[Rfam]
RNA sequence: AGCACUUGUGCGUCUUUAGUUUGUAACAAAGAUUUGCAGACUGGUGCAAAAAGAAAAUCCUCUUUUGCAACCCAGAACUCAUGGUUCAAUGUGAGUUUUGGUAUAUGUAAGAAACAAUACU
Numbered sequence: 001a002g003c004a005c006u007u008g009u010g011c012g013u014c015u016u017u018a019g020u021u022u023g024u025a026a027c028a029a030a031g032a033u034u035u036g037c038a039g040a041c042u043g044g045u046g047c048a049a050a051a052a053g054a055a056a057a058u059c060c061u062c063u064u065u066u067g068c069a070a071c072c073c074a075g076a077a078c079u080c081a082u083g084g085u086u087c088a089a090u091g092u093g094a095g096u097u098u099u100g101g102u103a104u105a106u107g108u109a110a111g112a113a114a115c116a117a118u119a120c121u
Stems, first nucleotide, its partner, number of pairs: 002047005008041002012033006020025001057118002061114001063112005073100010
RNA: Small nucleolar RNA SNORA40
Organism: Dipodomys ordii